[Rfam]
Nucleotides: 091
Base pairs, nucleotide, nucleotide: 001091002090003089004088
Number, partner (000 for none) and nucleotide at each position: 001091g002090a003089g004088c005000g006000a007000u008000g009000a010000c011000a012000g013000a014000u015000u016000u017000c018000u019000g020000c021000g022000c023000u024000c025000a026000u027000c028000c029000g030000u031000g032000a033000u034000u035000g036000a037000u038000u039000g040000g041000g042000u043000c044000c045000a046000u047000c048000a049000c050000a051000g052000c053000c054000g055000u056000c057000u058000g059000a060000u061000u062000c063000c064000a065000g066000a067000g068000a069000c070000g071000a072000c073000a074000a075000g076000a077000u078000g079000c080000g081000c082000a083000u084000c085000u086000g087000a088004g089003c090002u091001c